[Rfam]
Rfam assigns this 98-nucleotide sequence from Synechococcus phage S-BM1 to the family "PhotoRC-II RNA".
RNA sequence: CUUCGUUACAUACCCCUGCCGCUUGACCGAGACUAGGCAGGGUCAACAAUCCGUCUCUCAUACCUCUGUCUAAGGGUGGCAGAGGAAUAGUAACUCCA
Numbered sequence: 001c002u003u004c005g006u007u008a009c010a011u012a013c014c015c016c017u018g019c020c021g022c023u024u025g026a027c028c029g030a031g032a033c034u035a036g037g038c039a040g041g042g043u044c045a046a047c048a049a050u051c052c053g054u055c056u057c058u059c060a061u062a063c064c065u066c067u068g069u070c071u072a073a074g075g076g077u078g079g080c081a082g083a084g085g086a087a088u089a090g091u092a093a094c095u096c097c098a
Base pairs, nucleotide, nucleotide: 014042015041016040017039018038019037020036029057030056031055032054033053063085064084065083066082067081068080069079